[Rfam]
RNA sequence: CCUCUCUCAGCUCCACUUAAUCACACUGUGUGUGUGGUUGGUGUAUUUUCAGAGAGAGAGAGGAAGGCCCUCCUAAUGCAUGACAGACCGGCCCACAGUGGCCUGUCUGUUCCUAGGAGUGCGACAGCU
Dot-bracket structure: .(((((((..(((.....((((((((.....))))))))............))).))))))).......(((((.(.(......(((..((((......))))..)))...).))))))..........
This 129-nucleotide sequence from Diceros bicornis belongs to the Rfam family "Small nucleolar RNA SNORA64/SNORA10 family". Its family is annotated with nucleolus and RNA processing in the Gene Ontology. The family's RNA type in Rfam is H/ACA-box small nucleolar RNA. Clan: SNORA64 clan. It scores 110 bits against the family's covariance model.